Shown here is a 102-nucleotide RNA from Microcebus murinus, a member of the family "Y RNA". Rfam 15.1 lists 26,986 matches to the family in 650 species. The family's RNA type in Rfam is non-coding RNA gene. NCBI's taxonomy places the organism under Eukaryota, Metazoa, Deuterostomia, Amniota, Microcebus.
RNA sequence: AGCUGGUCCCAGUAGUGCAGUGGUGUUUACAACUAAUCACAACCAGUUACAAAUUCCUUUGUUCCCUCUUCACUCCCACUGCUUUCACUUUACUAGCCUUUA
Numbered sequence: 001a002g003c004u005g006g007u008c009c010c011a012g013u014a015g016u017g018c019a020g021u022g023g024u025g026u027u028u029a030c031a032a033c034u035a036a037u038c039a040c041a042a043c044c045a046g047u048u049a050c051a052a053a054u055u056c057c058u059u060u061g062u063u064c065c066c067u068c069u070u071c072a073c074u075c076c077c078a079c080u081g082c083u084u085u086c087a088c089u090u091u092a093c094u095a096g097c098c099u100u101u102a
Stems, first nucleotide, its partner, number of pairs: 002097006011089001017086001019080005025075001031063003035059002